[Rfam]
RNA sequence: AGCUUUGAGCAGUGGCAGUAUCAUAGCCAACGAGGUUAAUCCGAGGUGUGAUUAUUGCUAGUUGAAAACUUUCCUUUGCCUUGCUGUCACAUGAAUUAAAGUUUACAAAUUCAUUUUUCAGUCAUGGGAGGCAAAAAUUAUUUUCAGACUCAUUGGUGU
Numbered sequence: 001a002g003c004u005u006u007g008a009g010c011a012g013u014g015g016c017a018g019u020a021u022c023a024u025a026g027c028c029a030a031c032g033a034g035g036u037u038a039a040u041c042c043g044a045g046g047u048g049u050g051a052u053u054a055u056u057g058c059u060a061g062u063u064g065a066a067a068a069c070u071u072u073c074c075u076u077u078g079c080c081u082u083g084c085u086g087u088c089a090c091a092u093g094a095a096u097u098a099a100a101g102u103u104u105a106c107a108a109a110u111u112c113a114u115u116u117u118u119c120a121g122u123c124a125u126g127g128g129a130g131g132c133a134a135a136a137a138u139u140a141u142u143u144u145c146a147g148a149c150u151c152a153u154u155g156g157u158g159u
Base pairs, nucleotide, nucleotide: 020052021051022050023049024048026047027046028045034042035041081135082134085131087129088128090126091125092124093123094122148159149158151156
U4 spliceosomal RNA: a 159-nucleotide sequence from Chrysemys picta. A reference for the family is Zwieb (1997), "The uRNA database", Nucleic Acids Res. The base pairs follow the family's consensus structure, which is taken from published work. By type it is a spliceosomal small nuclear RNA. From the family's description: U4 small nuclear RNA (U4 snRNA) is a component of the major U2-dependent spliceosome. Its family is annotated with U4 snRNP and spliceosomal tri-snRNP complex assembly in the Gene Ontology.